Shown here is a 203-nucleotide sequence from Alkalihalophilus pseudofirmus, a member of the family "FMN riboswitch aptamer (RFN element)".

[Rfam]
RNA sequence: UGUUUCCUUCGGGGCGUGGUGAAAUUCCCGACCGGCGGUGAUGAAGCAAAUGCUUCUUAGUCCGUGACCCGUUUUCGCUUCUAUCGGCUGUGAUCAAUACGAUGAUUAGAGUAUAGAGGUGAUGUGUUUGCUGCAUCUUGAAAACGGUGGACCUGGUGAAAAUCCGGGACCGACAGUUAAAGUCUGGAUGGGAGAAGGAACGA
Dot-bracket structure: ...(((((((.......((.......))..[[((((((.....................[[))))...(((((((((.............................................................)))))))))....(((((.......)))))]])).(((.....]]))).......)))))))...